[Rfam]
The record is a 114-nucleotide sequence from Pundamilia nyererei, which matches "Potassium channel RNA editing signal" in Rfam.
RNA sequence: GUGGGCUACGGAGACAUGCACCCUGUGACAAUUGGGGGAAAGAUUGUGGGGUCUUUGUGCGCAAUUGCUGGCGUGCUGACUAUUGCCCUGCCUGUACCUGUCAUCGUCUCCAAU
Numbered sequence: 001g002u003g004g005g006c007u008a009c010g011g012a013g014a015c016a017u018g019c020a021c022c023c024u025g026u027g028a029c030a031a032u033u034g035g036g037g038g039a040a041a042g043a044u045u046g047u048g049g050g051g052u053c054u055u056u057g058u059g060c061g062c063a064a065u066u067g068c069u070g071g072c073g074u075g076c077u078g079a080c081u082a083u084u085g086c087c088c089u090g091c092c093u094g095u096a097c098c099u100g101u102c103a104u105c106g107u108c109u110c111c112a113a114u
Stems, first nucleotide, its partner, number of pairs: 001114002004111002008107004013102004018097001020095002037077002040074001050062001
Pairs were carried over by alignment from the consensus structure, which is taken from published work.